[Rfam]
RNA sequence: AUGAAUAGUUCUGCUUAAACUCAUAUAUCCUUGAUAAUCGGAUCAAGGGUGUCUACGAGGCAACCGUAAUUGCUUCUCUAUGAGCCAUGUUGGUUUAUGG
Numbered sequence: 001a002u003g004a005a006u007a008g009u010u011c012u013g014c015u016u017a018a019a020c021u022c023a024u025a026u027a028u029c030c031u032u033g034a035u036a037a038u039c040g041g042a043u044c045a046a047g048g049g050u051g052u053c054u055a056c057g058a059g060g061c062a063a064c065c066g067u068a069a070u071u072g073c074u075u076c077u078c079u080a081u082g083a084g085c086c087a088u089g090u091u092g093g094u095u096u097a098u099g100g
Base pairs, nucleotide, nucleotide: 020084021083022082023081024080025079029048030047031046032045033044034043035042057076058075059074060073061072062071063070
Shown here is a 100-nucleotide RNA from Desulfosporosinus acididurans, a member of the family "Purine riboswitch aptamer". The family's consensus secondary structure is taken from published work. A search with the family's covariance model found it, with a score of 64 bits. A reference for the family is Mandal et al. (2003), "Riboswitches Control Fundamental Biochemical Pathways in Bacillus subtilis and Other Bacteria", Cell.